[Rfam]
RNA sequence: CCAAUCCCAUCCGGCAGAGCGGAGCCCGCAGCCGGAAGCGAGUUUUGCGUGCCGCGGUGGGGCGACCCACACCACGAAGCGUAGACUGCAAGCACUGAGGCCCGGCGAUGGAGCCCCCGAAAGGGUUUGUGUCGUAGGGAGCCCUCCUCGUUAUGGGGCCGGGGGGCCGGGGGGCUGCGCCGAUCCGUCGUCAUGGCCAGACGGAUCGGUCCCGCCGGGGUCAGAGACCC
Numbered sequence: 001c002c003a004a005u006c007c008c009a010u011c012c013g014g015c016a017g018a019g020c021g022g023a024g025c026c027c028g029c030a031g032c033c034g035g036a037a038g039c040g041a042g043u044u045u046u047g048c049g050u051g052c053c054g055c056g057g058u059g060g061g062g063c064g065a066c067c068c069a070c071a072c073c074a075c076g077a078a079g080c081g082u083a084g085a086c087u088g089c090a091a092g093c094a095c096u097g098a099g100g101c102c103c104g105g106c107g108a109u110g111g112a113g114c115c116c117c118c119g120a121a122a123g124g125g126u127u128u129g130u131g132u133c134g135u136a137g138g139g140a141g142c143c144c145u146c147c148u149c150g151u152u153a154u155g156g157g158g159c160c161g162g163g164g165g166g167c168c169g170g171g172g173g174g175c176u177g178c179g180c181c182g183a184u185c186c187g188u189c190g191u192c193a194u195g196g197c198c199a200g201a202c203g204g205a206u207c208g209g210u211c212c213c214g215c216c217g218g219g220g221u222c223a224g225a226g227a228c229c230c
Stems, first nucleotide, its partner, number of pairs: 010036005019029003024197002038089002042086004046081002048076004054072001057070005111222001113221003117218003134215002137213004141175003146172004180209010
The record is a 230-nucleotide RNA sequence from Fimbriiglobus ruber, which matches "Group II catalytic intron D1-D4-6" in Rfam. Taxonomically the source falls in Fimbriiglobus (Bacteria, Planctomycetota, Planctomycetia, Gemmatales). Pairs were carried over by alignment from the consensus structure. Rfam links the family to the GO term Group II intron splicing. A search with the family's covariance model found it, with a score of 88 bits.